The family of this 91-nucleotide sequence from Rarobacter faecitabidus is "ZMP/ZTP riboswitch aptamer (pfl RNA motif)". The family's consensus secondary structure is taken from published work. Rfam links the family to the GO terms one-carbon metabolic process and regulation of purine nucleotide biosynthetic process. It scores 56 bits against the family's covariance model. The source organism's lineage runs through Bacteria, Actinomycetota, Actinomycetes, Rarobacteraceae and Rarobacter.
[Rfam]
RNA sequence: GUUAACGGUCGCAACUGGCGCAUGAGGUGGAUCACCACCGGGGAGCGACUUCGCAAGUGUCAAUCGUAGGUCGUUCGCCUGGGCCAACGGU
Numbered sequence: 001g002u003u004a005a006c007g008g009u010c011g012c013a014a015c016u017g018g019c020g021c022a023u024g025a026g027g028u029g030g031a032u033c034a035c036c037a038c039c040g041g042g043g044a045g046c047g048a049c050u051u052c053g054c055a056a057g058u059g060u061c062a063a064u065c066g067u068a069g070g071u072c073g074u075u076c077g078c079c080u081g082g083g084c085c086a087a088c089g090g091u
Base pairs, nucleotide, nucleotide: 007050008049009048010047011046012045015042016041017079018078019077020076027038028037029036030035069085070084071083072082